The record is a 295-nucleotide part of an RNA from uncultured Nosema, which matches "Microsporidia small subunit ribosomal RNA" in Rfam. A reference for the family is Yusupov et al. (2001), "Crystal structure of the ribosome at 5.5 A resolution", Science. Its family is annotated with ribosome and structural constituent of ribosome in the Gene Ontology. The family is grouped with related families in Rfam's "SSU clan".

RNA sequence: CAGUUAAAAAGUCCGUAGUUUAUAUUUAAGAAGCAAUAUGAGGUGUACUGUAUAGUUGGGAGAGAGAUGAAAUGUGACGACCCUGACUGGACGAACAGAAGCGAAAGCUGUACACUUGUAUGUAUUUUUUGAACAAGGACGUAAGCUGGAGGAGCGAAGAUGAUUAGAUACCAUUGUAGUUCCAGCAGUAAACUAUGCCAACGAUGUGAUAUGAUAUUAAUUGUAUUACAUGAUAGAAAUUUGAGUUUUUUGGCUCUGGGGAUAGUAUGAUCGCAAGAUUGAAAAUUAAAGAAAU
Numbered sequence: 001c002a003g004u005u006a007a008a009a010a011g012u013c014c015g016u017a018g019u020u021u022a023u024a025u026u027u028a029a030g031a032a033g034c035a036a037u038a039u040g041a042g043g044u045g046u047a048c049u050g051u052a053u054a055g056u057u058g059g060g061a062g063a064g065a066g067a068u069g070a071a072a073u074g075u076g077a078c079g080a081c082c083c084u085g086a087c088u089g090g091a092c093g094a095a096c097a098g099a100a101g102c103g104a105a106a107g108c109u110g111u112a113c114a115c116u117u118g119u120a121u122g123u124a125u126u127u128u129u130u131g132a133a134c135a136a137g138g139a140c141g142u143a144a145g146c147u148g149g150a151g152g153a154g155c156g157a158a159g160a161u162g163a164u165u166a167g168a169u170a171c172c173a174u175u176g177u178a179g180u181u182c183c184a185g186c187a188g189u190a191a192a193c194u195a196u197g198c199c200a201a202c203g204a205u206g207u208g209a210u211a212u213g214a215u216a217u218u219a220a221u222u223g224u225a226u227u228a229c230a231u232g233a234u235a236g237a238a239a240u241u242u243g244a245g246u247u248u249u250u251u252g253g254c255u256c257u258g259g260g261g262a263u264a265g266u267a268u269g270a271u272c273g274c275a276a277g278a279u280u281g282a283a284a285a286u287u288a289a290a291g292a293a294a295u
Stems, first nucleotide, its partner, number of pairs: 001258003011140004019132002031127003036121004042116007049093002053089008064075001066073001098109001101108002145186006154180002159175004197254003200247003204231012235240001260287002269280004